[Rfam]
RNA sequence: CGCUGGCCAAUGCCCUUUUAACAUUGCACUGCUUUUUGUGCACGUUCACUAGUAGUACAACAUAAAAAGGGCAGUGGACAGACA
Numbered sequence: 001c002g003c004u005g006g007c008c009a010a011u012g013c014c015c016u017u018u019u020a021a022c023a024u025u026g027c028a029c030u031g032c033u034u035u036u037u038g039u040g041c042a043c044g045u046u047c048a049c050u051a052g053u054a055g056u057a058c059a060a061c062a063u064a065a066a067a068a069g070g071g072c073a074g075u076g077g078a079c080a081g082a083c084a
Stems, first nucleotide, its partner, number of pairs: 002083001005079001007077003012072008024060003028056003
mir-130 microRNA precursor family: an 84-nucleotide RNA sequence from Podarcis muralis.
Pairs were carried over by alignment from the consensus structure, which was predicted with PFOLD.
On this family, see Lagos-Quintana et al., Curr Biol 2002: "Identification of tissue-specific microRNAs from mouse".
Rfam links the family to the GO terms RISC complex and miRNA-mediated post-transcriptional gene silencing.
The match comes from Rfam's covariance-model search (43 bits).